[Rfam]
RNA sequence: UGCGCGGAUAAAUCGACGGAUUGAAAAGCGGCGAUAUUGCUAACCGCCUGACGCGCAUUCUCAAUUAGCGAC
Numbered sequence: 001u002g003c004g005c006g007g008a009u010a011a012a013u014c015g016a017c018g019g020a021u022u023g024a025a026a027a028g029c030g031g032c033g034a035u036a037u038u039g040c041u042a043a044c045c046g047c048c049u050g051a052c053g054c055g056c057a058u059u060c061u062c063a064a065u066u067a068g069c070g071a072c
Base pairs, nucleotide, nucleotide: 001057002056003055004054005053006052011022012021013020014019028047029046030045031044037071038070039069040068041067
Shown here is a 72-nucleotide RNA, a member of the family "int-alpA RNA".
Rfam 15.1 lists 577 matches to the family in 491 species.
Acidobacteria (1 example), Planctomycetes (1 example), Proteobacteria.